Shown here is a 125-nucleotide RNA from Brassica carinata, a member of the family "MIR9563 microRNA precursor family". Rfam links the family to the GO terms miRNA-mediated post-transcriptional gene silencing and RISC complex. Taxonomically the source falls in Brassica (Eukaryota, Streptophyta, Embryophyta, malvids).
[Rfam]
RNA sequence: GGAAUAUAAGAACCUGUCUAUUAACUUUUAAUUAAAAAAGUUAAGAACCGGCUUUUAAAUAAGAUAUUUAAGAACCGGUUCUUAAAUUUUUUAAUUAAAAGUCAAGAGACGGGUUCUUGUAUUCC
Numbered sequence: 001g002g003a004a005u006a007u008a009a010g011a012a013c014c015u016g017u018c019u020a021u022u023a024a025c026u027u028u029u030a031a032u033u034a035a036a037a038a039a040g041u042u043a044a045g046a047a048c049c050g051g052c053u054u055u056u057a058a059a060u061a062a063g064a065u066a067u068u069u070a071a072g073a074a075c076c077g078g079u080u081c082u083u084a085a086a087u088u089u090u091u092u093a094a095u096u097a098a099a100a101g102u103c104a105a106g107a108g109a110c111g112g113g114u115u116c117u118u119g120u121a122u123u124c125c
Base pairs, nucleotide, nucleotide: 001125002124003123004122005121006120007119008118009117010116011115012114013113014112015111016110017109018108019107021105022104024102025101026100027099028098029097030096031095032094033093034092035091036090037089038088039087041085042084043083044082045081046080047079